[Rfam]
RNA sequence: GAAUGGAUAGAUGAUGAUUACUACUUAGCUUGAACUCUCUCUCUGAUGAGUGAUGGAAAACCUAAGUUCUGAUCCAUUC
Number, nucleotide and partner (000 for none) at each position: 001g079002a078003a077004u076005g075006g074007a073008u000009a000010g000011a000012u000013g000014a000015u000016g000017a000018u000019u000020a000021c000022u000023a000024c000025u000026u000027a000028g000029c000030u000031u000032g000033a000034a000035c000036u000037c000038u000039c000040u000041c000042u000043c000044u000045g000046a000047u000048g000049a000050g000051u000052g000053a000054u000055g000056g000057a000058a000059a000060a000061c000062c000063u000064a000065a000066g000067u000068u000069c000070u000071g000072a000073u007074c006075c005076a004077u003078u002079c001
RNA: Small nucleolar RNA SNORD81
Organism: Pelodiscus sinensis